[Rfam]
Nucleotides: 116
Base pairs, nucleotide, nucleotide: 003113004112005111006110007109013103014102015101017099018098019097020096021095022094024092025091026090027089029087030086031085032084
Number, partner (000 for none) and nucleotide at each position: 001000c002000u003113u004112u005111g006110u007109g008000a009000u010000c011000u012000u013103c014102c015101a016000c017099a018098g019097c020096u021095u022094u023000c024092u025091u026090g027089a028000a029087c030086u031085g032084c033000a034000u035000g036000a037000a038000u039000c040000g041000a042000a043000c044000c045000g046000a047000u048000c049000g050000u051000u052000u053000u054000g055000a056000u057000u058000u059000a060000g061000c062000g063000a064000c065000g066000g067000c068000c069000g070000g071000c072000c073000g074000g075000a076000u077000c078000g079000a080000g081000a082000g083000a084032g085031c086030a087029g088000u089027u090026c091025a092024a093000u094022a095021a096020a097019g098018c099017u100000g101015u102014g103013g104000g105000a106000a107000a108000u109007u110006g111005c112004a113003g114000a115000g116000a

The record is a 116-nucleotide sequence from Leersia perrieri, which matches "MIR396 microRNA precursor family" in Rfam. Rfam 15.1 lists 744 matches to the family in 207 species. The match comes from Rfam's covariance-model search (83 bits). Taxonomically the source falls in Leersia (Eukaryota, Euphyllophyta, Spermatophyta, Poaceae). On this family, see Jones-Rhoades and Bartel, Mol Cell 2004: "Computational identification of plant microRNAs and their targets, including a stress-induced miRNA".